[Rfam]
RNA sequence: AGAUCGGGCCUUUCAGGCAUCCUCUCCUAAGACUUUUCAGGGCUGGUCCUCACGGAUCGGCCCUUUUUUCUUUGUGAU
Numbered sequence: 001a002g003a004u005c006g007g008g009c010c011u012u013u014c015a016g017g018c019a020u021c022c023u024c025u026c027c028u029a030a031g032a033c034u035u036u037u038c039a040g041g042g043c044u045g046g047u048c049c050u051c052a053c054g055g056a057u058c059g060g061c062c063c064u065u066u067u068u069u070c071u072u073u074g075u076g077a078u
Stems, first nucleotide, its partner, number of pairs: 008018004040063009